[Rfam]
The record is a 200-nucleotide RNA from Pseudobacteroides cellulosolvens, which matches "Group II catalytic intron D1-D4-5" in Rfam.
From the family's description: Group II introns are found in rRNA, tRNA and mRNA of organelles in fungi, plants and protists, and also in mRNA in bacteria.
The base pairs follow the family's consensus structure.
Its family is annotated with Group II intron splicing in the Gene Ontology.
For this family Rfam cites "The ins and outs of group II introns" (Bonen and Vogel, Trends Genet, 2001).
RNA sequence: AAGAACUAAUAAUCCGAAAAGUCAAAUGAUAGUGUAACAGCUUGAAGGGCUUUCUCUGAUAUUCCGAAUAGCAUUAUUAUUAAUAAGAAUAACGAUGUUAUAAGCUCGGUGAAGACGGCUGAGACUACACCCUAACAAGUAAAGUUGAGGAAAAGCGAACCAGAGGUGGUCGAGUGUAUGAUAGGCCGGGGGUCCAUAAA
Numbered sequence: 001a002a003g004a005a006c007u008a009a010u011a012a013u014c015c016g017a018a019a020a021g022u023c024a025a026a027u028g029a030u031a032g033u034g035u036a037a038c039a040g041c042u043u044g045a046a047g048g049g050c051u052u053u054c055u056c057u058g059a060u061a062u063u064c065c066g067a068a069u070a071g072c073a074u075u076a077u078u079a080u081u082a083a084u085a086a087g088a089a090u091a092a093c094g095a096u097g098u099u100a101u102a103a104g105c106u107c108g109g110u111g112a113a114g115a116c117g118g119c120u121g122a123g124a125c126u127a128c129a130c131c132c133u134a135a136c137a138a139g140u141a142a143a144g145u146u147g148a149g150g151a152a153a154a155g156c157g158a159a160c161c162a163g164a165g166g167u168g169g170u171c172g173a174g175u176g177u178a179u180g181a182u183a184g185g186c187c188g189g190g191g192g193u194c195c196a197u198a199a200a
Base pairs, nucleotide, nucleotide: 018053019052020051021050022049023048031043032042054192055191056190057189064109065108066107067106068101069100070099071098072097073096074095075094077092078091079090080089081088116188117187118186119185120184126178127177128176129175130174131150132149133148138146139145156172157171159170160169161168162167